[Rfam]
RNA sequence: ACUGGCUAGGAUGAUACAUACUUGCCCUCACUUAGACCCUAGUUCGUUGCUGAGAGCACUGUUCUGAGCCAGU
Numbered sequence: 001a002c003u004g005g006c007u008a009g010g011a012u013g014a015u016a017c018a019u020a021c022u023u024g025c026c027c028u029c030a031c032u033u034a035g036a037c038c039c040u041a042g043u044u045c046g047u048u049g050c051u052g053a054g055a056g057c058a059c060u061g062u063u064c065u066g067a068g069c070c071a072g073u
Stems, first nucleotide, its partner, number of pairs: 001073006
RNA: Small nucleolar RNA SNORD103/SNORD85
Organism: Jaculus jaculus